[Rfam]
Source information: The record is a 119-nucleotide RNA from Streptomyces purpureus, which matches "Streptomyces-metH RNA" in Rfam. The source organism's lineage runs through Bacteria, Bacillati, Actinomycetota, Actinomycetes and Streptomyces. Pairs were carried over by alignment from the consensus structure, which is taken from published work.
RNA sequence: CCGUCCGCCCCGUGGGACACCAUGUCCGCCCCGGCUCCCGCGCGGUUACUCUGGCCCGGUGCGCCUUCCACCGAAGACGCAAAGCCGACAGCCGUCGCACUCCAGGGAGCACAUCCAUG
Numbered sequence: 001c002c003g004u005c006c007g008c009c010c011c012g013u014g015g016g017a018c019a020c021c022a023u024g025u026c027c028g029c030c031c032c033g034g035c036u037c038c039c040g041c042g043c044g045g046u047u048a049c050u051c052u053g054g055c056c057c058g059g060u061g062c063g064c065c066u067u068c069c070a071c072c073g074a075a076g077a078c079g080c081a082a083a084g085c086c087g088a089c090a091g092c093c094g095u096c097g098c099a100c101u102c103c104a105g106g107g108a109g110c111a112c113a114u115c116c117a118u119g
Base pairs, nucleotide, nucleotide: 060081061080062079063078065076066075067074068073084098085097087096088095089094